[Rfam]
RNA: ASpks TB sRNA
RNA sequence: CUUGAUCGAGCCCAGCCACAACGGACCCUGCUCCCCGCGGCCCUGGCCAUACGUCGCCAGUAGUGCCUGCGCCUC
Numbered sequence: 001c002u003u004g005a006u007c008g009a010g011c012c013c014a015g016c017c018a019c020a021a022c023g024g025a026c027c028c029u030g031c032u033c034c035c036c037g038c039g040g041c042c043c044u045g046g047c048c049a050u051a052c053g054u055c056g057c058c059a060g061u062a063g064u065g066c067c068u069g070c071g072c073c074u075c
Stems, first nucleotide, its partner, number of pairs: 016024002031071001033069001038065002043060003047056001049054001